[Rfam]
RNA sequence: GCGGUACCGGUUCACGCCCCCCUGUCUCCCAUGGCCCGGCCACUGGGUGGAGGCGCCCGGCGACC
Numbered sequence: 001g002c003g004g005u006a007c008c009g010g011u012u013c014a015c016g017c018c019c020c021c022c023u024g025u026c027u028c029c030c031a032u033g034g035c036c037c038g039g040c041c042a043c044u045g046g047g048u049g050g051a052g053g054c055g056c057c058c059g060g061c062g063a064c065c
Base pairs, nucleotide, nucleotide: 003065004064005063007060008059009058010057015055016054017053018052020050021049023047
A member of the RNA family "L31-Actinobacteria ribosomal protein leader", 65 nucleotides long. The sequence is in the family's curated seed alignment. The family's RNA type in Rfam is cis-regulatory leader.